Vault RNA: a 99-nucleotide RNA from Oncorhynchus tshawytscha. The family's consensus secondary structure is taken from published work. It is annotated as a non-coding RNA gene. The organism belongs to Oncorhynchus, within Eukaryota.

[Rfam]
RNA sequence: GUGCUGGUCUGGCUCAGUGGUUACUUGAACUUUCUCUAUCAGAACAGUUCGUUACCUCUGCAAAGGUGUCGAACCACGGGCGUGCUGUCCAGUGUUUUG
Numbered sequence: 001g002u003g004c005u006g007g008u009c010u011g012g013c014u015c016a017g018u019g020g021u022u023a024c025u026u027g028a029a030c031u032u033u034c035u036c037u038a039u040c041a042g043a044a045c046a047g048u049u050c051g052u053u054a055c056c057u058c059u060g061c062a063a064a065g066g067u068g069u070c071g072a073a074c075c076a077c078g079g080g081c082g083u084g085c086u087g088u089c090c091a092g093u094g095u096u097u098u099g
Stems, first nucleotide, its partner, number of pairs: 002094006012081004017077004025072004
Dot-bracket structure: .((((((....((((.((((....((((........................................)))).)))))))).......)))))).....